[Rfam]
RNA sequence: GAAGUUAGGCUGAGGGGCAGAGAGCGAGACUUUUCUAUUUUCCAAAAGCUCGGUCUGAGGCCCCUCAGUCUUGCUUCC
Numbered sequence: 001g002a003a004g005u006u007a008g009g010c011u012g013a014g015g016g017g018c019a020g021a022g023a024g025c026g027a028g029a030c031u032u033u034u035c036u037a038u039u040u041u042c043c044a045a046a047a048g049c050u051c052g053g054u055c056u057g058a059g060g061c062c063c064c065u066c067a068g069u070c071u072u073g074c075u076u077c078c
Base pairs, nucleotide, nucleotide: 001077002076003075004074005073007071008070009069010068011067012066013065014064015063016062017061018060021056022055023054025052026051027050028049030048031047032046033045034044
Rfam assigns this 78-nucleotide RNA sequence from Cricetulus griseus to the family "mir-423 microRNA precursor family". NCBI's taxonomy places the organism under Eukaryota, Tetrapoda, Boreoeutheria, Muroidea, Cricetulus. Rfam links the family to the GO terms RISC complex and miRNA-mediated post-transcriptional gene silencing. The base pairs follow the family's consensus structure, which was predicted with RNAalifold.